[Rfam]
The family of this 123-nucleotide RNA sequence from Halalkalibacter akibai is "PyrR binding site". The base pairs follow the family's consensus structure, which is taken from published work. Taxonomically the source falls in Halalkalibacter akibai (Bacteria, Bacillati, Bacillota, Bacillaceae). About the family: This family represents the PyrR binding site and terminator structure. This RNA structure is found upstream of a variety of genes involved in pyrimidine biosynthesis and transport.
RNA sequence: UAGUCCUUUAACUACAGUCCCGUGAGGCUGAGAAGGAAACGGUUUGAAAACAGAGGCAAAAUCUGUCUGUUUUCACUUGUGUUUUAACCUCUCAGUUCAUUUUGGACAGAGAGGUUUUUUCGU
Dot-bracket structure: ...((((((.....(((((......))))).)))))).......((((((((((.(.(...).).))))))))))..........((((((((.((((.....)))).)))))))).......